[Rfam]
RNA sequence: AUAAAAGGUACACUUUUUUAUGGAAAUAAAACAAUACUAAAACUAAAUGAAGGAGCAAUACCGACCCUCUUAUUCUAUCAAGAGGGUCGGUAUUGCUCCUU
Numbered sequence: 001a002u003a004a005a006a007g008g009u010a011c012a013c014u015u016u017u018u019u020a021u022g023g024a025a026a027u028a029a030a031a032c033a034a035u036a037c038u039a040a041a042a043c044u045a046a047a048u049g050a051a052g053g054a055g056c057a058a059u060a061c062c063g064a065c066c067c068u069c070u071u072a073u074u075c076u077a078u079c080a081a082g083a084g085g086g087u088c089g090g091u092a093u094u095g096c097u098c099c100u101u
Stems, first nucleotide, its partner, number of pairs: 050101012063088003067084005
Dot-bracket structure: .................................................((((((((((((.(((.(((((........))))).))).))))))))))))
The family of this 101-nucleotide RNA sequence from Papaver somniferum is "Plastid-psbA-1 3UTR RNA". About the family: Plastid psbA-1 is a non-coding RNA (ncRNA) present in plastids. It was identified in inverted repeat sequences in the 3 prime untranslate region (3UTR) of photosystem II quinone-binding protein (psbA).